The record is a 117-nucleotide RNA sequence from Lampropedia cohaerens, which matches "ALIL pseudoknot" in Rfam. The family's RNA type in Rfam is cis-regulatory element. The source organism's lineage runs through Bacteria, Pseudomonadota, Burkholderiales, Comamonadaceae and Lampropedia.
RNA sequence: UGCGUAUUUCGCCCAGGCGGAGCACGACCGCCGCUUCAAGCCAUGAUCGGGUUUGUCGCCAACCAUCGCGACGCCUACGGAGUCGAGCCGAUCUGCCGGGGACUGGAGAUCGCUCCG
Number, nucleotide and partner (000 for none) at each position: 001u000002g000003c000004g000005u000006a000007u000008u000009u000010c000011g000012c000013c000014c000015a000016g032017g031018c030019g029020g028021a000022g000023c000024a000025c000026g000027a000028c020029c019030g018031c017032c016033g000034c000035u000036u000037c000038a000039a000040g000041c000042c000043a000044u000045g000046a000047u000048c000049g000050g000051g000052u000053u000054u000055g000056u000057c000058g000059c000060c000061a000062a000063c000064c000065a000066u000067c000068g000069c000070g000071a000072c000073g000074c000075c000076u000077a000078c117079g116080g115081a114082g113083u000084c000085g000086a000087g000088c000089c112090g111091a000092u109093c108094u107095g000096c105097c000098g103099g000100g000101g000102a000103c098104u000105g096106g000107a094108g093109a092110u000111c090112g089113c082114u081115c080116c079117g078